L31-Actinobacteria ribosomal protein leader: a 39-nucleotide RNA sequence from Sciscionella sediminilitoris. The organism belongs to Sciscionella, within Bacteria. The base pairs follow the family's consensus structure, which is taken from published work.
RNA sequence: CAGGUUCCGGUUCACCCCGCCAUCGGGGACCCGGCGACC
Dot-bracket structure: ..(((.((((....(((((....)))))..))))..)))
Numbered sequence: 001c002a003g004g005u006u007c008c009g010g011u012u013c014a015c016c017c018c019g020c021c022a023u024c025g026g027g028g029a030c031c032c033g034g035c036g037a038c039c
Stems, first nucleotide, its partner, number of pairs: 003039003007034004015028005